A member of the RNA family "T-box leader" from Halobacillus sp. BAB-2008, 216 nucleotides long. It is annotated as a cis-regulatory leader. For this family Rfam cites "tRNA determinants for transcription antitermination of the Bacillus subtilis tyrS gene" (Grundy et al., RNA, 2000). The organism belongs to Halobacillus, within Bacteria. Rfam describes the family as follows. Uncharged tRNA acts as the effector for transcription antitermination of genes in the T-box leader family.
[Rfam]
RNA sequence: GAUUAUUCAUUGAGGAAGAGAGUACGUAGGCAUCGGAUCUGCAGCGAGCCGGGGUUGGUGGAAGCCUGGUGAUCGAUUCAUACGGAAACGCACUUCUGAGAAGUUCGGUGAACGAUAGUAGCCGUAACCGGGAGCUCCCGUUAUCAGCAUUGAGUUGGUCUAUUUAAUUAGACAAUGAGAGUGGCACCGCGGAUGAUAAUAACGUCCGUCUCUUAC
Numbered sequence: 001g002a003u004u005a006u007u008c009a010u011u012g013a014g015g016a017a018g019a020g021a022g023u024a025c026g027u028a029g030g031c032a033u034c035g036g037a038u039c040u041g042c043a044g045c046g047a048g049c050c051g052g053g054g055u056u057g058g059u060g061g062a063a064g065c066c067u068g069g070u071g072a073u074c075g076a077u078u079c080a081u082a083c084g085g086a087a088a089c090g091c092a093c094u095u096c097u098g099a100g101a102a103g104u105u106c107g108g109u110g111a112a113c114g115a116u117a118g119u120a121g122c123c124g125u126a127a128c129c130g131g132g133a134g135c136u137c138c139c140g141u142u143a144u145c146a147g148c149a150u151u152g153a154g155u156u157g158g159u160c161u162a163u164u165u166a167a168u169u170a171g172a173c174a175a176u177g178a179g180a181g182u183g184g185c186a187c188c189g190c191g192g193a194u195g196a197u198a199a200u201a202a203c204g205u206c207c208g209u210c211u212c213u214u215a216c
Stems, first nucleotide, its partner, number of pairs: 007101002015096004025084004030079001037073003048070006104127002106124004129140003158173005178213004189209007